[Rfam]
RNA: terC RNA
RNA sequence: GCGUGACGCCGGGCCCCUCUGGCGGUGAGCUGCUCACCGUGAUGUCGGAGUCACUGA
Numbered sequence: 001g002c003g004u005g006a007c008g009c010c011g012g013g014c015c016c017c018u019c020u021g022g023c024g025g026u027g028a029g030c031u032g033c034u035c036a037c038c039g040u041g042a043u044g045u046c047g048g049a050g051u052c053a054c055u056g057a
Base pairs, nucleotide, nucleotide: 006051007050009048010047011046012045022040023039024038025037026036027035028034